[Rfam]
Nucleotides: 056
Base pairs, nucleotide, nucleotide: 007054010051011050012049013048014047015046016045017044018043019042020041021040022039023038024037025036
Number, partner (000 for none) and nucleotide at each position: 001000g002000a003000a004000c005000c006000g007054g008000c009000a010051a011050g012049a013048a014047c015046c016045a017044u018043g019042u020041g021040a022039a023038u024037c025036a026000c027000u028000a029000c030000a031000c032000u033000a034000c035000u036025u037024g038023a039022u040021u041020c042019a043018c044017a045016u046015g047014g048013u049012u050011c051010u052000g053000a054007c055000a056000a
The family of this 56-nucleotide sequence from Viburnum betulifolium is "Plastid-ccsA-ndhD-1 3UTR RNA". The family has 488 seed sequences and 1,322 matches in Rfam 15.1. Rfam's curators write: Plastid-ccsA-ndhD-1 is a non-coding RNA (ncRNA) recognised in plastids. Its Rfam clan is "Plastid-ccsA_ndhD 3UTR RNA clan". The base pairs follow the family's consensus structure, which was predicted with LocARNA.